[Rfam]
RNA sequence: GGCCGGAUAAGGCGUUCACGCUGCAUCCGGCACCCGGAGCCUGAUGCGACGCUGGCGCGUCUUAUCAGGCC
Numbered sequence: 001g002g003c004c005g006g007a008u009a010a011g012g013c014g015u016u017c018a019c020g021c022u023g024c025a026u027c028c029g030g031c032a033c034c035c036g037g038a039g040c041c042u043g044a045u046g047c048g049a050c051g052c053u054g055g056c057g058c059g060u061c062u063u064a065u066c067a068g069g070c071c
Stems, first nucleotide, its partner, number of pairs: 002031007011022004039070008048061005
This 71-nucleotide RNA from Shigella flexneri belongs to the Rfam family "Nucleoid-associated noncoding RNA 4 (CssrE)".
The family has 3 seed sequences and 870 matches in Rfam 15.1.
The literature on the family includes a 2015 paper in MBio by Qian et al., "A New Noncoding RNA Arranges Bacterial Chromosome Organization".
Rfam describes the family as follows. In E. coli small RNA transcribed from repeated extragenic palindromic element (REP325) called nucleoid-associated ncRNA 4 (nRNA4) collaborates HU protein in condensing the DNA. The secondary structure but not the sequence of the RNA is important in nucleoid condensation. Also identified in Shigella as CssrE.
Lineage of the source: Bacteria > Pseudomonadota > Gammaproteobacteria > Shigella flexneri > Shigella flexneri 2a.
It is annotated as a small RNA.